About this RNA: The record is a 71-nucleotide RNA sequence from Carassius auratus, which matches "Small nucleolar RNA SNORD58" in Rfam. The match comes from Rfam's covariance-model search (48 bits). Lineage of the source: Eukaryota > Opisthokonta > Bilateria > Gnathostomata > Carassius.
RNA sequence: GUACGAUGAUGACCAACUUAGGACACCUUUGUAGGUUAAGACCUAUGAAAACACACCAUGUUCCGAGUACA
Numbered sequence: 001g002u003a004c005g006a007u008g009a010u011g012a013c014c015a016a017c018u019u020a021g022g023a024c025a026c027c028u029u030u031g032u033a034g035g036u037u038a039a040g041a042c043c044u045a046u047g048a049a050a051a052c053a054c055a056c057c058a059u060g061u062u063c064c065g066a067g068u069a070c071a
Stems, first nucleotide, its partner, number of pairs: 001070004
Rfam links the family to the GO terms RNA processing and nucleolus.
By type it is a C/D-box small nucleolar RNA.
On this family, see Galardi et al., Mol Cell Biol 2002: "Purified box C/D snoRNPs are able to reproduce site-specific 2'-O-methylation of target RNA in vitro".
The family is grouped with related families in Rfam's "SNORD58 clan".